[Rfam]
RNA sequence: UGAGUUGGCCGCUAGGGUUCCGGUCUUGCAAGCAGCAAGGCGCUGGUCCGAGAGCAGCCGCUUGCGGGGGAGACAUCCCCGCAGGUGCACGGCGGGACAAAAGCCCGGGAGAC
Numbered sequence: 001u002g003a004g005u006u007g008g009c010c011g012c013u014a015g016g017g018u019u020c021c022g023g024u025c026u027u028g029c030a031a032g033c034a035g036c037a038a039g040g041c042g043c044u045g046g047u048c049c050g051a052g053a054g055c056a057g058c059c060g061c062u063u064g065c066g067g068g069g070g071a072g073a074c075a076u077c078c079c080c081g082c083a084g085g086u087g088c089a090c091g092g093c094g095g096g097a098c099a100a101a102a103g104c105c106c107g108g109g110a111g112a113c
Base pairs, nucleotide, nucleotide: 007059008058009057011055012054015049016048020046021045022043023041024040025039026038027037028036060086061085062084063083064082065081066080067079068078069077088108090111094106095105096104
Guanidine-I riboswitch aptamer: a 113-nucleotide RNA from Bradyrhizobium ivorense. A search with the family's covariance model found it, with a score of 89 bits. Its family is annotated with regulation of gene expression in the Gene Ontology. The family has 100 seed sequences and 1,509 matches in Rfam 15.1.